[Rfam]
RNA sequence: GCCGUCCGGACCGUGGACCGUUCGUACGGGUGGACGGCCUCCCGGAUACCCUGGCGGAGUGCGCCUGCCAUGAGAAGGGCGCAAAGCCGACAGCCGUCGCACUCCAGGGAGCACUACAUG
Numbered sequence: 001g002c003c004g005u006c007c008g009g010a011c012c013g014u015g016g017a018c019c020g021u022u023c024g025u026a027c028g029g030g031u032g033g034a035c036g037g038c039c040u041c042c043c044g045g046a047u048a049c050c051c052u053g054g055c056g057g058a059g060u061g062c063g064c065c066u067g068c069c070a071u072g073a074g075a076a077g078g079g080c081g082c083a084a085a086g087c088c089g090a091c092a093g094c095c096g097u098c099g100c101a102c103u104c105c106a107g108g109g110a111g112c113a114c115u116a117c118a119u120g
Base pairs, nucleotide, nucleotide: 060083061082062081063080065077066076068074086100087099089098090097091096
Rfam assigns this 120-nucleotide RNA sequence from Streptomyces jeddahensis to the family "Streptomyces-metH RNA". Rfam classes the family as a small RNA. The family's consensus secondary structure is taken from published work.